M-box riboswitch aptamer (ykoK leader): a 167-nucleotide sequence from Koleobacter methoxysyntrophicus.
It scores 154 bits against the family's covariance model.
M-box riboswitch, also know as ykoK leader is described as a metaloregulatory RNA that sense divalent metals and function as a genetic control element of genes related to divalent metal transport in bacteria. It was first reported upstream of the B.subtilis ykoK gene and genes with related functions in other bacteria.
RNA sequence: GAUACCUUCAGUUAGGUGAGGCUCCUGUAUGAGCAUAUGCCACUGCCCGGAAAUGUCGAGAGACACCAAUGGGUCAACAGGUACUGUCGGAUUAAGGCUUUACCUAAUGUGGCUGGGUAUUUUACCCAAAGUCAUACAGUGCUAAAAACUAGACAAGUGAAGGGUUG
Numbered sequence: 001g002a003u004a005c006c007u008u009c010a011g012u013u014a015g016g017u018g019a020g021g022c023u024c025c026u027g028u029a030u031g032a033g034c035a036u037a038u039g040c041c042a043c044u045g046c047c048c049g050g051a052a053a054u055g056u057c058g059a060g061a062g063a064c065a066c067c068a069a070u071g072g073g074u075c076a077a078c079a080g081g082u083a084c085u086g087u088c089g090g091a092u093u094a095a096g097g098c099u100u101u102a103c104c105u106a107a108u109g110u111g112g113c114u115g116g117g118u119a120u121u122u123u124a125c126c127c128a129a130a131g132u133c134a135u136a137c138a139g140u141g142c143u144a145a146a147a148a149c150u151a152g153a154c155a156a157g158u159g160a161a162g163g164g165u166u167g
Stems, first nucleotide, its partner, number of pairs: 005163006011154002013095001015149001017147001020143003025139008039113005045074005054065004080104004086098003115127003